[Rfam]
RNA: t44 RNA
Organism: Pseudidiomarina salinarum
RNA sequence: CAGAAGUUAAUUAAACACACACAUACAUCGACACAUAGGUCGGGGUGCUCCGGGUCUGCCGGGGUCGAACUAUGGGAUGUAUGGAGGCAUAAC
Number, nucleotide and partner (000 for none) at each position: 001c000002a000003g000004a000005a000006g000007u000008u000009a000010a000011u000012u000013a000014a000015a000016c000017a000018c000019a000020c000021a000022c083023a082024u081025a080026c079027a078028u077029c076030g000031a000032c000033a000034c074035a073036u072037a071038g070039g000040u068041c067042g066043g000044g000045g000046u000047g065048c064049u063050c062051c061052g000053g000054g000055u000056c000057u000058g000059c000060c000061g051062g050063g049064g048065u047066c042067g041068a040069a000070c038071u037072a036073u035074g034075g000076g029077a028078u027079g026080u025081a024082u023083g022084g000085a000086g000087g000088c000089a000090u000091a000092a000093c000